[Rfam]
RNA sequence: CGUCAAGAGCGCCAGUGUCAAGUCCCGGCUUGCUGGCCGGCAACCCUCCUCCGCGGCGGGGUGCCCCGGGUGGAGACAUGGCCCGACUGGACCGCCGGGCAAGCGCGGACC
Numbered sequence: 001c002g003u004c005a006a007g008a009g010c011g012c013c014a015g016u017g018u019c020a021a022g023u024c025c026c027g028g029c030u031u032g033c034u035g036g037c038c039g040g041c042a043a044c045c046c047u048c049c050u051c052c053g054c055g056g057c058g059g060g061g062u063g064c065c066c067c068g069g070g071u072g073g074a075g076a077c078a079u080g081g082c083c084c085g086a087c088u089g090g091a092c093c094g095c096c097g098g099g100c101a102a103g104c105g106c107g108g109a110c111c
Stems, first nucleotide, its partner, number of pairs: 002077003009038001011037006021030002039065003044061003048056002081100005087094001

Source information:
This 111-nucleotide RNA from Microlunatus elymi belongs to the Rfam family "SAM (S-adenosyl methionine) riboswitch aptamer". SAM-IV is a mRNA element that regulates gene expression via direct sensing of S-adenosylmethionine (SAM or AdoMet). SAM-IV riboswitches share conserved nucleotide positions with the previously described SAM-I riboswitches sequence analysis and molecular recognition experiments suggest that SAM-I and SAM-IV riboswitches share similar ligand binding sites, but have different scaffolds. The source organism's lineage runs through Bacteria, Actinomycetes, Propionibacteriales, Propionibacteriaceae and Microlunatus. Its Rfam clan is "SAM clan".